[Rfam]
RNA sequence: ACACGGGAAGGAGGUGGUCCAGUUAAUGUUUGACUCUUGGACACGUGAGGUGGCUGUCCGCUAGCCGCUGACGCGUCGGGACUACUGCUGACGUGGUGUACACGUGGCGGCGAAUCCCCGACAGUCACCCGGCCCGCAGGGGGUUGCGUGAGUCCGCGCGACCAUUCCAACCCUGCGGGCCGUCCCAU
Numbered sequence: 001a002c003a004c005g006g007g008a009a010g011g012a013g014g015u016g017g018u019c020c021a022g023u024u025a026a027u028g029u030u031u032g033a034c035u036c037u038u039g040g041a042c043a044c045g046u047g048a049g050g051u052g053g054c055u056g057u058c059c060g061c062u063a064g065c066c067g068c069u070g071a072c073g074c075g076u077c078g079g080g081a082c083u084a085c086u087g088c089u090g091a092c093g094u095g096g097u098g099u100a101c102a103c104g105u106g107g108c109g110g111c112g113a114a115u116c117c118c119c120g121a122c123a124g125u126c127a128c129c130c131g132g133c134c135c136g137c138a139g140g141g142g143g144u145u146g147c148g149u150g151a152g153u154c155c156g157c158g159c160g161a162c163c164a165u166u167c168c169a170a171c172c173c174u175g176c177g178g179g180c181c182g183u184c185c186c187a188u
Base pairs, nucleotide, nucleotide: 013058014057015056016055017054018053059112060111061110062109065106067105068104130182131181132180133179134178135177136176137175138174139173140172141171143162144161145160146159147158148157
Dot-bracket structure: ............((((((..................................))))))((((..(.((...................................)))..)))).................((((((((((((.((((((........))))))........))))))))))))......